[Rfam]
RNA sequence: CCCCGUGAUCGGCAAACCGCGCGAAAGCGCGGGACGCAAAGCCUCCGGCCUACAGCCGACGCCCCUCAGGCGCCGGCCAGGGUAGCGGGGUUGCCAGC
Numbered sequence: 001c002c003c004c005g006u007g008a009u010c011g012g013c014a015a016a017c018c019g020c021g022c023g024a025a026a027g028c029g030c031g032g033g034a035c036g037c038a039a040a041g042c043c044u045c046c047g048g049c050c051u052a053c054a055g056c057c058g059a060c061g062c063c064c065c066u067c068a069g070g071c072g073c074c075g076g077c078c079a080g081g082g083u084a085g086c087g088g089g090g091u092u093g094c095c096a097g098c
Base pairs, nucleotide, nucleotide: 012037013036017032018031019030020029021028022027040092041091042090043089045088046087047086048083049082050081055077056076057075058074
The family of this 98-nucleotide sequence from Mitsuaria sp. WAJ17 is "c-di-GMP-I riboswitch aptamer".
Taxonomically the source falls in Roseateles (Bacteria, Pseudomonadota, Betaproteobacteria, Sphaerotilaceae).
Rfam describes the family as follows. GEMM was predicted in a large-scale screen for bacterial structured RNA regulatory elements.
Pairs were carried over by alignment from the consensus structure, which is taken from published work.
The match comes from Rfam's covariance-model search (70 bits).